Rfam assigns this 130-nucleotide RNA from Camelus dromedarius to the family "Small nucleolar RNA SNORA33". A search with the family's covariance model found it, with a score of 129 bits. Rfam's curators write: ACA33 is a member of the H/ACA class of snoRNA that guide the sites of modification of uridines to pseudouridines. Taxonomically the source falls in Camelus (Eukaryota, Craniata, Dipnotetrapodomorpha, Eutheria). The family's RNA type in Rfam is H/ACA-box small nucleolar RNA. Rfam links the family to the GO terms nucleolus and RNA processing. Pairs were carried over by alignment from the consensus structure, which was predicted with PFOLD.

RNA sequence: AAGCCAGCCAAAGAAUCUGCUUACCUGAAUAUGUUUCUGCAGAAAUUUAAGAAAUGCUGGCAAUAGGAAAGCCAUCUUACGAGUAUUAAAGACAUUGAGGUUUUUAAGGUCCCUGAAACUGGUUACAAAG
Numbered sequence: 001a002a003g004c005c006a007g008c009c010a011a012a013g014a015a016u017c018u019g020c021u022u023a024c025c026u027g028a029a030u031a032u033g034u035u036u037c038u039g040c041a042g043a044a045a046u047u048u049a050a051g052a053a054a055u056g057c058u059g060g061c062a063a064u065a066g067g068a069a070a071g072c073c074a075u076c077u078u079a080c081g082a083g084u085a086u087u088a089a090a091g092a093c094a095u096u097g098a099g100g101u102u103u104u105u106a107a108g109g110u111c112c113c114u115g116a117a118a119c120u121g122g123u124u125a126c127a128a129a130g
Stems, first nucleotide, its partner, number of pairs: 003061005016043005071123004083110002086107004091102003